[Rfam]
RNA sequence: UUCUUCAUUUAUUGGUACCAUAGUCAAUGAGGGUUUACCGAGACGUGGUUAUUGCUAGUUGAAAACUACUCCCAAUACCCCGCACAGACGUCUCUCACGGGACGGCUAGUGCAAUUUUUUCAGGCUUCUACGGAAG
Numbered sequence: 001u002u003c004u005u006c007a008u009u010u011a012u013u014g015g016u017a018c019c020a021u022a023g024u025c026a027a028u029g030a031g032g033g034u035u036u037a038c039c040g041a042g043a044c045g046u047g048g049u050u051a052u053u054g055c056u057a058g059u060u061g062a063a064a065a066c067u068a069c070u071c072c073c074a075a076u077a078c079c080c081c082g083c084a085c086a087g088a089c090g091u092c093u094c095u096c097a098c099g100g101g102a103c104g105g106c107u108a109g110u111g112c113a114a115u116u117u118u119u120u121c122a123g124g125c126u127u128c129u130a131c132g133g134a135a136g
Stems, first nucleotide, its partner, number of pairs: 017049005023044003031039002082112003086107002089104006125136004
RNA: U4 spliceosomal RNA